[Rfam]
RNA sequence: GCGGCCGGCCGGACGGUCGCGAGUGGCGCGGGCGACCGCGUCCACCCGAGGAAAGUCCGGGCUCCGCAGGGCAGACCGCCAGGUAACGCCUGGGCGCGCGCGGCACUCCACCGCGUGCGACGGACAGUGCAACAGAGAGCACACCGCCGAUGGCCCCGGGCGCGCGAGCGUCCGCGGCACAGGCAAGGGUGAAAGGGUGCGCGGCAGGAUCCGCGGCCGGCGGGGGGCGAGAGCGCCCCGUCAGGCGGGUAAGAGCCCACCGCGCCCCCGGCAACGGGGGCGGCACGGUAAACCCCGGUCGGAGCAAGGCCAAGUAGGCGGCGAGGGACGGCCCGUCCCGUCAAAGCCGCGGGUAGGCUGCUGGAGCGUCCCGGGUGACCGGGCGCCGAGAGAAAUGACCGUCCGGGCGGCGUUCACGCCGUCCGACAGAACCCGGCUUACAGGCCGGUCGCCACG
Numbered sequence: 001g002c003g004g005c006c007g008g009c010c011g012g013a014c015g016g017u018c019g020c021g022a023g024u025g026g027c028g029c030g031g032g033c034g035a036c037c038g039c040g041u042c043c044a045c046c047c048g049a050g051g052a053a054a055g056u057c058c059g060g061g062c063u064c065c066g067c068a069g070g071g072c073a074g075a076c077c078g079c080c081a082g083g084u085a086a087c088g089c090c091u092g093g094g095c096g097c098g099c100g101c102g103g104c105a106c107u108c109c110a111c112c113g114c115g116u117g118c119g120a121c122g123g124a125c126a127g128u129g130c131a132a133c134a135g136a137g138a139g140c141a142c143a144c145c146g147c148c149g150a151u152g153g154c155c156c157c158g159g160g161c162g163c164g165c166g167a168g169c170g171u172c173c174g175c176g177g178c179a180c181a182g183g184c185a186a187g188g189g190u191g192a193a194a195g196g197g198u199g200c201g202c203g204g205c206a207g208g209a210u211c212c213g214c215g216g217c218c219g220g221c222g223g224g225g226g227g228c229g230a231g232a233g234c235g236c237c238c239c240g241u242c243a244g245g246c247g248g249g250u251a252a253g254a255g256c257c258c259a260c261c262g263c264g265c266c267c268c269c270g271g272c273a274a275c276g277g278g279g280g281c282g283g284c285a286c287g288g289u290a291a292a293c294c295c296c297g298g299u300c301g302g303a304g305c306a307a308g309g310c311c312a313a314g315u316a317g318g319c320g321g322c323g324a325g326g327g328a329c330g331g332c333c334c335g336u337c338c339c340g341u342c343a344a345a346g347c348c349g350c351g352g353g354u355a356g357g358c359u360g361c362u363g364g365a366g367c368g369u370c371c372c373g374g375g376u377g378a379c380c381g382g383g384c385g386c387c388g389a390g391a392g393a394a395a396u397g398a399c400c401g402u403c404c405g406g407g408c409g410g411c412g413u414u415c416a417c418g419c420c421g422u423c424c425g426a427c428a429g430a431a432c433c434c435g436g437c438u439u440a441c442a443g444g445c446c447g448g449u450c451g452c453c454a455c456g
Stems, first nucleotide, its partner, number of pairs: 001452010011441001012403007020048002023045004053439003057436005062304004069338004074300005079093005094121001095119009122295002127293002129289002144188002146184003151179002154176001196261004262284001263282008308359004318350005330342003366386004371382004
Annotation: Bacterial RNase P class A: a 456-nucleotide RNA sequence from Roseisolibacter agri. The family's RNA type in Rfam is ribozyme. For this family Rfam cites "Ribonuclease P: unity and diversity in a tRNA processing ribozyme" (Frank and Pace, Annu Rev Biochem, 1998). A search with the family's covariance model found it, with a score of 174 bits.